RNA sequence: UCCCAUAUGGUGUAGUGGUUAGCAUAAUGCUCUCUCAUCUAAUGAGCGCAGCAUAGACCCUGGUUCGAUUCCUGGUAUGGGAG
Number, nucleotide and partner (000 for none) at each position: 001u082002c081003c080004c079005a078006u077007a076008u000009g000010g025011u024012g023013u022014a000015g000016u000017g000018g000019u000020u000021a000022g013023c012024a011025u010026a000027a054028u053029g052030c051031u050032c000033u000034c000035u000036c000037a000038u000039c000040u000041a000042a000043u000044g000045a000046g000047c000048g000049c000050a031051g030052c029053a028054u027055a000056g000057a000058c000059c075060c074061u000062g072063g071064u000065u000066c000067g000068a000069u000070u000071c063072c062073u000074g060075g059076u007077a006078u005079g004080g003081g002082a001083g000
RNA: tRNA